[Rfam]
About this RNA: This 145-nucleotide RNA sequence from Pectinatus brassicae belongs to the Rfam family "glmS glucosamine-6-phosphate activated ribozyme aptamer". About the family: This entry contains a glucosamine-6-phosphate activated ribozyme that is found in the mRNA for GlmS. GlmS is an enzyme that uses fructose-6-phosphate and glutamine to generate glucosamine-6-phosphate. The ribozyme catalyses self cleavage of the glmS mRNA that is thought to regulate GlmS activity.

Nucleotides: 145
Stems, first nucleotide, its partner, number of pairs: 020032005041071005049060001051058002072088006095133004106121006
Number, partner (000 for none) and nucleotide at each position: 001000g002000c003000a004000u005000a006000u007000u008000g009000c010000u011000u012000a013000g014000c015000g016000c017000u018000g019000g020032c021031u022030c023029u024028u025000u026000a027000u028024a029023a030022g031021a032020g033000g034000a035000c036000g037000a038000g039000g040000a041071a042070g043069a044068g045067g046000u047000u048000g049060u050000c051058g052057a053000g054000u055000a056000a057052u058051c059000a060049g061000c062000g063000g064000a065000u066000g067045c068044c069043u070042c071041u072088c073087g074086g075085c076084u077083g078000u079000a080000a081000u082000c083077c084076g085075g086074u087073c088072g089000a090000u091000a092000a093000a094000a095133u096132u097131u098130g099000u100000c101000a102000a103000a104000a105000c106121c107120u108119u109118g110117g111116g112000g113000c114000a115000a116111c117110c118109c119108a120107g121106g122000a123000c124000a125000c126000a127000a128000u129000a130098c131097a132096a133095a134000g135000a136000g137000u138000a139000a140000g141000g142000a143000u144000u145000g

By type it is a riboswitch.